Shown here is an 82-nucleotide RNA sequence from Phyllostomus discolor, a member of the family "mir-1179 microRNA precursor family". It scores 82 bits against the family's covariance model. Its family is annotated with RISC complex and miRNA-mediated post-transcriptional gene silencing in the Gene Ontology. The family's consensus secondary structure was predicted with RNAalifold. Lineage of the source: Eukaryota > Vertebrata > Tetrapoda > Amniota > Phyllostomus.

[Rfam]
RNA sequence: CCAGAAAGGGAGACACAUUCUCUCAUUGGUUGGUGUGUAUUCCCUUGUCAGCCAAUCAGAGGGUGCCAUUUAUCCUUUUCUG
Numbered sequence: 001c002c003a004g005a006a007a008g009g010g011a012g013a014c015a016c017a018u019u020c021u022c023u024c025a026u027u028g029g030u031u032g033g034u035g036u037g038u039a040u041u042c043c044c045u046u047g048u049c050a051g052c053c054a055a056u057c058a059g060a061g062g063g064u065g066c067c068a069u070u071u072a073u074c075c076u077u078u079u080c081u082g
Base pairs, nucleotide, nucleotide: 004079005078006077007076008075009074010073012071013070016065017064018063019062020061021060022059023058025056026055027054028053029052030051031050032049033048034047035046